Rfam assigns this 43-nucleotide RNA sequence to the family "Prion pseudoknot". Rfam describes the family as follows. This family represents a predicted pseudoknot structure found in prion protein mRNA. It has been suggested that the family has a possible effect in prion protein translation. The family has 148 seed sequences and 421 matches in Rfam 15.1. Its family is annotated with translation in the Gene Ontology. By type it is a cis-regulatory element.
RNA sequence: CCACGGUGGUGGCUGGGGACAGCCCCAUGGUGGUGGUGGCUGG
Dot-bracket structure: (((.((..................)).))).............
Numbered sequence: 001c002c003a004c005g006g007u008g009g010u011g012g013c014u015g016g017g018g019a020c021a022g023c024c025c026c027a028u029g030g031u032g033g034u035g036g037u038g039g040c041u042g043g
Stems, first nucleotide, its partner, number of pairs: 001030003005026002